[Rfam]
RNA sequence: CUAUGCUGGGGUUUGAAAGGGGAUUCCCCUUUCCCGGUUUAAGGAGGGUGCUCAGGAUGCAGAUCAAAGUCCUGAGGCAUCCGCCGAAGGGAAC
Dot-bracket structure: ..............((((((((...)))))))).....................(((((..................)))))............
RNA: Clostridiales-2 RNA